[Rfam]
The family of this 76-nucleotide RNA sequence from Sphingomonas parva is "Makes More Granules Regulator RNA (mmgR)".
Its family is annotated with protein binding, response to nitrogen compound and DNA-templated transcription, termination in the Gene Ontology.
Rfam 15.1 lists 1,791 matches to the family in 918 species.
By type it is a small RNA.
RNA sequence: AGGUGGGGCCUUUCAGGCAUCCUCUCCUAAAAACUUUCAGGCCGGUCGUUCGCGAUCGGCCUUUUUUUUCGCUGCG
Dot-bracket structure: .......((((...)))).....................(((((((((....)))))))))...............